[Rfam]
RNA: Molybdenum/Tungsten riboswitch aptamer (Moco RNA motif)
RNA sequence: UAAUUUUAUAGUUUCCGAGCCUCUUGACCUAAUGGGACAACUGUUCCGAUGGUCACUGGGCCAAGCGCUGCCUUUGCGGCGCAUAAGAGCUCUGCUGGAAACGGCACAGCUUUCCGUGUUUGAGAAGGAGACAGUGUGCUUCAGGG
Numbered sequence: 001u002a003a004u005u006u007u008a009u010a011g012u013u014u015c016c017g018a019g020c021c022u023c024u025u026g027a028c029c030u031a032a033u034g035g036g037a038c039a040a041c042u043g044u045u046c047c048g049a050u051g052g053u054c055a056c057u058g059g060g061c062c063a064a065g066c067g068c069u070g071c072c073u074u075u076g077c078g079g080c081g082c083a084u085a086a087g088a089g090c091u092c093u094g095c096u097g098g099a100a101a102c103g104g105c106a107c108a109g110c111u112u113u114c115c116g117u118g119u120u121u122g123a124g125a126a127g128g129a130g131a132c133a134g135u136g137u138g139c140u141u142c143a144g145g146g
Base pairs, nucleotide, nucleotide: 003140011132012131013130014129015128016127019061020060021059022058025055026054027053028052029051033048034047035046036045037044038043063084065082066081067080068079069078070077087112088111089110090109091108093106094105095104096103097102113123114122